[Rfam]
RNA: Small nucleolar RNA Z107/R87
Organism: Lupinus albus
RNA sequence: GAUCACAGUGAUGACCACAUAAUAUUCAAGCUCAACAGACCGGAAUGCAGGGUUCUCUCUCUUAUUAGAGAUUACUUUGCGUGUCGACUACCCCGCUGAACUGAGUGAUC
Numbered sequence: 001g002a003u004c005a006c007a008g009u010g011a012u013g014a015c016c017a018c019a020u021a022a023u024a025u026u027c028a029a030g031c032u033c034a035a036c037a038g039a040c041c042g043g044a045a046u047g048c049a050g051g052g053u054u055c056u057c058u059c060u061c062u063u064a065u066u067a068g069a070g071a072u073u074a075c076u077u078u079g080c081g082u083g084u085c086g087a088c089u090a091c092c093c094c095g096c097u098g099a100a101c102u103g104a105g106u107g108a109u110c
Base pairs, nucleotide, nucleotide: 001110002109003108004107005106006105